[Rfam]
RNA sequence: CAAGGCAAGAAGAAGCGCCCGCUUCUCACCUGAUUGACGGAUUGUUGACAGGUAUGAUGAGUUUCAUUUUAGAUGACACAACAAGUGUGGGCGUAGUAUGCCCACACUUAUUUUUUGUU
Numbered sequence: 001c002a003a004g005g006c007a008a009g010a011a012g013a014a015g016c017g018c019c020c021g022c023u024u025c026u027c028a029c030c031u032g033a034u035u036g037a038c039g040g041a042u043u044g045u046u047g048a049c050a051g052g053u054a055u056g057a058u059g060a061g062u063u064u065c066a067u068u069u070u071a072g073a074u075g076a077c078a079c080a081a082c083a084a085g086u087g088u089g090g091g092c093g094u095a096g097u098a099u100g101c102c103c104a105c106a107c108u109u110a111u112u113u114u115u116u117g118u119u
Stems, first nucleotide, its partner, number of pairs: 011026006028053003034048005086106009

Ribosomal protein L20 leader: a 119-nucleotide sequence from Halalkalibacter suaedae. By type it is a cis-regulatory leader. The organism belongs to Halalkalibacter, within Bacteria. The match comes from Rfam's covariance-model search (79 bits). From the family's description: This family is a putative r-protein leader autoregulatory structure found in B. subtilis and other low-GC Gram-positive bacteria. It is located in the 5' untranslated regions of mRNAs encoding initiation factor 3 followed by ribosomal proteins L35 and L20 (infC-rpmI-rplT). A Rho-independent transcription terminator structure that is probably involved in regulation is included at the 3' end. Its family is annotated with regulation of gene expression in the Gene Ontology.